[Rfam]
This 75-nucleotide RNA from Vibrio ostreae belongs to the Rfam family "tRNA". Rfam classes the family as a transfer RNA. From the family's description: Transfer RNA (tRNA) molecules are approximately 80 nucleotides in length. A search with the family's covariance model found it, with a score of 57 bits.

RNA sequence: GCGUCCGUAGCUCAGCUGGAUAGAGUACCUGGCUACGAACCAGGCGGUCAGAGGUUCGAAUCCUCUCCGGACGCG
Numbered sequence: 001g002c003g004u005c006c007g008u009a010g011c012u013c014a015g016c017u018g019g020a021u022a023g024a025g026u027a028c029c030u031g032g033c034u035a036c037g038a039a040c041c042a043g044g045c046g047g048u049c050a051g052a053g054g055u056u057c058g059a060a061u062c063c064u065c066u067c068c069g070g071a072c073g074c075g
Stems, first nucleotide, its partner, number of pairs: 001074007010026004028044005050066005